This 91-nucleotide sequence from Nitrococcus mobilis belongs to the Rfam family "SAH (S-adenosyl-L-homocysteine) riboswitch aptamer". NCBI's taxonomy places the organism under Bacteria, Pseudomonadati, Pseudomonadota, Nitrococcus, Nitrococcus mobilis.
RNA sequence: CUCGCCGAGGAGCGCUGCAACAGGACACGUCUUGGAUUCCUGCCAGGCUCGGCGAUUAUCGGGACCUUUAAACCAACGGCGCUCGGUUCAG
Numbered sequence: 001c002u003c004g005c006c007g008a009g010g011a012g013c014g015c016u017g018c019a020a021c022a023g024g025a026c027a028c029g030u031c032u033u034g035g036a037u038u039c040c041u042g043c044c045a046g047g048c049u050c051g052g053c054g055a056u057u058a059u060c061g062g063g064a065c066c067u068u069u070a071a072a073c074c075a076a077c078g079g080c081g082c083u084c085g086g087u088u089c090a091g
Stems, first nucleotide, its partner, number of pairs: 002055007021042005
Rfam's curators put it in the seed alignment. On this family, see Wang et al., Mol Cell 2008: "Riboswitches that sense S-adenosylhomocysteine and activate genes involved in coenzyme recycling". Rfam links the family to the GO terms regulation of gene expression and S-adenosylhomocysteine metabolic process. Pairs were carried over by alignment from the consensus structure, which is taken from published work.